[Rfam]
Small nucleolar RNA SNORA64/SNORA10 family: a 134-nucleotide RNA sequence from Cavia porcellus. For this family Rfam cites "Nucleolar localization signals of box H/ACA small nucleolar RNAs" (Narayanan et al., EMBO J, 1999). Rfam links the family to the GO terms RNA processing and nucleolus.

RNA sequence: CCUCUCUCAGCUCCGCUGGAUCACACAAAUGCAGUGUGUGUGGUGGCGUAUUUCAAGGGAGAGAGAGGAAGGCCCUCCUAAUGCACGACAGACCUGCCCCAAGUGGCCUCUCUGUUCCUAGGAGUGCAACAUAG
Numbered sequence: 001c002c003u004c005u006c007u008c009a010g011c012u013c014c015g016c017u018g019g020a021u022c023a024c025a026c027a028a029a030u031g032c033a034g035u036g037u038g039u040g041u042g043g044u045g046g047c048g049u050a051u052u053u054c055a056a057g058g059g060a061g062a063g064a065g066a067g068g069a070a071g072g073c074c075c076u077c078c079u080a081a082u083g084c085a086c087g088a089c090a091g092a093c094c095u096g097c098c099c100c101a102a103g104u105g106g107c108c109u110c111u112c113u114g115u116u117c118c119u120a121g122g123a124g125u126g127c128a129a130c131a132u133a134g
Stems, first nucleotide, its partner, number of pairs: 002067007011059003020044007075124005081119001083117001090113003096107003
Clan: SNORA64 clan.
Pairs were carried over by alignment from the consensus structure, which is taken from published work.
By type it is an H/ACA-box small nucleolar RNA.
About the family: This family belongs to the H/ACA class of small nucleolar RNAs (snoRNAs) which act as guides in the the modification of uridines to pseudouridines. This family includes the human snoRNAs U64 and ACA10 and mouse MBI-29.